RNA: c-di-AMP riboswitch aptamer (ydaO/yuaA leader)
Organism: Paenibacillus methanolicus
RNA sequence: ACUUAGCGUACGCUUAAUUCCCGUGACGCUAAGGAUCGGGAAGCGGGGGAACCAAUUUCGGCCCCGUUGGCGCUUCGCUUGCCACGCGCAAGAGGAACGCUGCGGCCGGAACGCUUGCAGGCUUAAUCGUCUGCGGGCAGGGGCGAAUCGUUACGCCGGUAACGUAGGGAACCAUCUAUCCCGAGUCCGUCAGCUAACCUCGUCAGCAGAAGAUGGGUCCC
Numbered sequence: 001a002c003u004u005a006g007c008g009u010a011c012g013c014u015u016a017a018u019u020c021c022c023g024u025g026a027c028g029c030u031a032a033g034g035a036u037c038g039g040g041a042a043g044c045g046g047g048g049g050a051a052c053c054a055a056u057u058u059c060g061g062c063c064c065c066g067u068u069g070g071c072g073c074u075u076c077g078c079u080u081g082c083c084a085c086g087c088g089c090a091a092g093a094g095g096a097a098c099g100c101u102g103c104g105g106c107c108g109g110a111a112c113g114c115u116u117g118c119a120g121g122c123u124u125a126a127u128c129g130u131c132u133g134c135g136g137g138c139a140g141g142g143g144c145g146a147a148u149c150g151u152u153a154c155g156c157c158g159g160u161a162a163c164g165u166a167g168g169g170a171a172c173c174a175u176c177u178a179u180c181c182c183g184a185g186u187c188c189g190u191c192a193g194c195u196a197a198c199c200u201c202g203u204c205a206g207c208a209g210a211a212g213a214u215g216g217g218u219c220c221c
Stems, first nucleotide, its partner, number of pairs: 012207003018042006043203006053140001141188003149164004167182004